[Rfam]
Archaeal large subunit ribosomal RNA: a 263-nucleotide part of an RNA from Puccinia coronata.
Gene Ontology terms of the family: ribosome and structural constituent of ribosome.
It scores 1396 bits against the family's covariance model.
RNA sequence: CACUUGAAGUUAGACUUGUUAUUAUUAGUUCAACCUUUUCUUAAGGGAGUAUUCUAAUGAUUAACAGACCAACAUCAAUUUUUGAGUGUUGGAGAAGGGUUUAAGGAAAUGUAGCAGUCUCUGGCUGUGUUAUAGUCCUGAACUUUGAUACAAUGCUUAAGAUUGAGGAAGGCAGUAAGCACUUUAUUGUGUGGGACAAAUUAAUGUUCUUCUUACUGAGGAUGUUGGUGUAAUAGCUUUAAAUGACCCGUCUUGAAACACGG
Numbered sequence: 001c002a003c004u005u006g007a008a009g010u011u012a013g014a015c016u017u018g019u020u021a022u023u024a025u026u027a028g029u030u031c032a033a034c035c036u037u038u039u040c041u042u043a044a045g046g047g048a049g050u051a052u053u054c055u056a057a058u059g060a061u062u063a064a065c066a067g068a069c070c071a072a073c074a075u076c077a078a079u080u081u082u083u084g085a086g087u088g089u090u091g092g093a094g095a096a097g098g099g100u101u102u103a104a105g106g107a108a109a110u111g112u113a114g115c116a117g118u119c120u121c122u123g124g125c126u127g128u129g130u131u132a133u134a135g136u137c138c139u140g141a142a143c144u145u146u147g148a149u150a151c152a153a154u155g156c157u158u159a160a161g162a163u164u165g166a167g168g169a170a171g172g173c174a175g176u177a178a179g180c181a182c183u184u185u186a187u188u189g190u191g192u193g194g195g196a197c198a199a200a201u202u203a204a205u206g207u208u209c210u211u212c213u214u215a216c217u218g219a220g221g222a223u224g225u226u227g228g229u230g231u232a233a234u235a236g237c238u239u240u241a242a243a244u245g246a247c248c249c250g251u252c253u254u255g256a257a258a259c260a261c262g263g
Base pairs, nucleotide, nucleotide: 001245002244004242005241006240007239008238009237010236016233021229022228023227024226026224027223031220248263249262250261251260
Overview
Pairs were carried over by alignment from the consensus structure, which is taken from published work. NCBI's taxonomy places the organism under Eukaryota, Opisthokonta, Fungi, Pucciniomycotina, Puccinia coronata var. avenae.